[Rfam]
RNA: Fluoride riboswitch aptamer (crcB RNA motif)
RNA sequence: AGACUUUAAGGGAAUGAAGUUCUCCCUUGACUUAUGUCUAAACCGCUUUGGUAAGCUAAUGACUUCUGCAAGUUU
Numbered sequence: 001a002g003a004c005u006u007u008a009a010g011g012g013a014a015u016g017a018a019g020u021u022c023u024c025c026c027u028u029g030a031c032u033u034a035u036g037u038c039u040a041a042a043c044c045g046c047u048u049u050g051g052u053a054a055g056c057u058a059a060u061g062a063c064u065u066c067u068g069c070a071a072g073u074u075u
Stems, first nucleotide, its partner, number of pairs: 010026004016066006045056004